[Rfam]
RNA sequence: UCCAGAUGAGGAAGAAUUCCCGUUAGAUAGGAAGUGCCGUAUGACACUUUAAUCAGCAGCGGUCAU
Numbered sequence: 001u002c003c004a005g006a007u008g009a010g011g012a013a014g015a016a017u018u019c020c021c022g023u024u025a026g027a028u029a030g031g032a033a034g035u036g037c038c039g040u041a042u043g044a045c046a047c048u049u050u051a052a053u054c055a056g057c058a059g060c061g062g063u064c065a066u
Stems, first nucleotide, its partner, number of pairs: 014060001031050006